[Rfam]
RNA sequence: AGUUCAUCCAUCGGGGGCCACAGAAGGAGCGUUCUUGUCGUGGUCCCUGCCAGGCUUUGCCUGCGAAUCCUUCU
Numbered sequence: 001a002g003u004u005c006a007u008c009c010a011u012c013g014g015g016g017g018c019c020a021c022a023g024a025a026g027g028a029g030c031g032u033u034c035u036u037g038u039c040g041u042g043g044u045c046c047c048u049g050c051c052a053g054g055c056u057u058u059g060c061c062u063g064c065g066a067a068u069c070c071u072u073c074u
Stems, first nucleotide, its partner, number of pairs: 014047006022074007029041003051063005
Overview
This 74-nucleotide RNA sequence from Eptatretus burgeri belongs to the Rfam family "Mammalian CPEB3 ribozyme". The mammalian CPEB3 ribozyme is a self cleaving RNA located in the second intron of the CPEB3 gene which belongs to a family of genes regulating messenger RNA polyadenylation. The source organism's lineage runs through Eukaryota, Deuterostomia, Craniata, Cyclostomata and Eptatretus.